A member of the RNA family "mir-928 microRNA precursor family" from Apis mellifera, 100 nucleotides long. Pairs were carried over by alignment from the consensus structure, which was predicted with RNAalifold. Rfam 15.1 lists 10 matches to the family in 10 species. Lineage of the source: Eukaryota > Panarthropoda > Allotriocarida > Anthophila > Apis.
RNA sequence: GUCCAGUAUUCCUGGCUGUGGAAGCUGGCGAACGUCACCCAGUCCCCGUACAGUUACCUGUGGACCAAUACCAGCACCGCGCCUGAAUUAGUUGCGGGAC
Numbered sequence: 001g002u003c004c005a006g007u008a009u010u011c012c013u014g015g016c017u018g019u020g021g022a023a024g025c026u027g028g029c030g031a032a033c034g035u036c037a038c039c040c041a042g043u044c045c046c047c048g049u050a051c052a053g054u055u056a057c058c059u060g061u062g063g064a065c066c067a068a069u070a071c072c073a074g075c076a077c078c079g080c081g082c083c084u085g086a087a088u089u090a091g092u093u094g095c096g097g098g099a100c
Stems, first nucleotide, its partner, number of pairs: 001100004006095002009087003014083003018080004024075005034065002038062001040060003